[Rfam]
RNA: MIR1886 microRNA precursor family
Organism: Solanum tuberosum
RNA sequence: UGAUAUGAAAUUAGCAUUUGGACAUAUAAUUUCACGUUGAUUUCAUAUCAUG
Dot-bracket structure: (((((((((((((((.((((......)))....).)))))))))))))))..